Notes
Rfam assigns this 77-nucleotide RNA sequence from Alligator mississippiensis to the family "Mammalian CPEB3 ribozyme". Pairs were carried over by alignment from the consensus structure, which is taken from published work.
[Rfam]
RNA sequence: GGUCAUAAAUUUGAGGCCAUAGCAGAAGUGCUCAGGGCAGGGCCUGUUAGAUUCAAACAAAGUCUGCGAAUUCUGCU
Numbered sequence: 001g002g003u004c005a006u007a008a009a010u011u012u013g014a015g016g017c018c019a020u021a022g023c024a025g026a027a028g029u030g031c032u033c034a035g036g037g038c039a040g041g042g043c044c045u046g047u048u049a050g051a052u053u054c055a056a057a058c059a060a061a062g063u064c065u066g067c068g069a070a071u072u073c074u075g076c077u
Stems, first nucleotide, its partner, number of pairs: 015044004021077007029039002048066006

Lineage of the source: Eukaryota > Teleostomi > Dipnotetrapodomorpha > Amniota > Alligator.